[Rfam]
A member of the RNA family "RpsF leader" from Veronia nyctiphanis, 84 nucleotides long.
Gene Ontology terms of the family: protein binding and negative regulation of translation.
Rfam's curators write: Conserved and widely distributed to many bacterial species RNA structure. It precedes operon containing rpsF, which encodes ribosomal protein S6. The motif also precedes operon containing rpsR, which encodes ribosomal protein S18.
A reference for the family is Babina et al. (2015), "An S6:S18 complex inhibits translation of E. coli rpsF", RNA.
RNA sequence: CCUGGUCUUUUACUUUCGUUCCUUGCUUCCGCUGGAUGACCGGGCACGCGUGGAAGCUGAAUAAUCCGUAAGGAGCAACUCAUG
Number, nucleotide and partner (000 for none) at each position: 001c000002c000003u000004g000005g000006u000007c000008u000009u000010u000011u000012a000013c000014u000015u000016u000017c000018g076019u075020u074021c073022c072023u071024u070025g057026c056027u055028u054029c053030c052031g051032c050033u000034g000035g000036a000037u000038g000039a000040c000041c000042g000043g000044g000045c000046a000047c000048g000049c000050g032051u031052g030053g029054a028055a027056g026057c025058u000059g000060a000061a000062u000063a000064a000065u000066c000067c000068g000069u000070a024071a023072g022073g021074a020075g019076c018077a000078a000079c000080u000081c000082a000083u000084g000